[Rfam]
RNA: Small Cajal body specific RNA 21
RNA sequence: CGGCUUGGUUUCCUGGGGCGUGGGCUCAGCCUGCCCCACCUCCCCUCAGCCGAGCCUAGAGCACAGAGGCCUGGCUCCCCAAACCCCACGGGAGAGGCGCCUGAGACGGGCGCCUGGCCCCGGGCUGGCCUUGCCUCACAUUU
Numbered sequence: 001c002g003g004c005u006u007g008g009u010u011u012c013c014u015g016g017g018g019c020g021u022g023g024g025c026u027c028a029g030c031c032u033g034c035c036c037c038a039c040c041u042c043c044c045c046u047c048a049g050c051c052g053a054g055c056c057u058a059g060a061g062c063a064c065a066g067a068g069g070c071c072u073g074g075c076u077c078c079c080c081a082a083a084c085c086c087c088a089c090g091g092g093a094g095a096g097g098c099g100c101c102u103g104a105g106a107c108g109g110g111c112g113c114c115u116g117g118c119c120c121c122g123g124g125c126u127g128g129c130c131u132u133g134c135c136u137c138a139c140a141u142u143u
Stems, first nucleotide, its partner, number of pairs: 002056006015044004020039005066137005073130002078124003089116004